[Rfam]
RNA sequence: GGUUUCCAUUGGUGCAAAUCCAAUCACCUCGACUUGAGAUGAAAAGCAAUUCCCAUUGGUAGCAAAUGGUUAUCCAUUAAGCGGGGGAAUGAUAUU
Numbered sequence: 001g002g003u004u005u006c007c008a009u010u011g012g013u014g015c016a017a018a019u020c021c022a023a024u025c026a027c028c029u030c031g032a033c034u035u036g037a038g039a040u041g042a043a044a045a046g047c048a049a050u051u052c053c054c055a056u057u058g059g060u061a062g063c064a065a066a067u068g069g070u071u072a073u074c075c076a077u078u079a080a081g082c083g084g085g086g087g088a089a090u091g092a093u094a095u096u
Base pairs, nucleotide, nucleotide: 009023010022011021012020052086053085054083055077056076058074059073060072061071062070063069

A member of the RNA family "Plastid-rps12 3UTR RNA" from Lindera glauca, 96 nucleotides long. Plastid rpl20 is a non-coding RNA (ncRNA) recognised in plastids. It was found in the three prime untranslated region (3UTR) of rps12 gene, its 3UTR location sugest a role in transcript maduration. The literature on the family includes a 2023 paper in Plant Commun by Richter et al., "Retrograde signaling in plants: A critical review focusing on the GUN pathway and beyond". The family's consensus secondary structure was predicted with LocARNA. Rfam 15.1 lists 1,710 matches to the family in 1,426 species.